[Rfam]
RNA sequence: GUUUCCGAGGAGCGUUGCGACGGGCCCCGCCCGCCAGGCUCGGAAAUGGUCAACCGAGCGGUGUGUCU
Numbered sequence: 001g002u003u004u005c006c007g008a009g010g011a012g013c014g015u016u017g018c019g020a021c022g023g024g025c026c027c028c029g030c031c032c033g034c035c036a037g038g039c040u041c042g043g044a045a046a047u048g049g050u051c052a053a054c055c056g057a058g059c060g061g062u063g064u065g066u067c068u
Stems, first nucleotide, its partner, number of pairs: 002046007021033005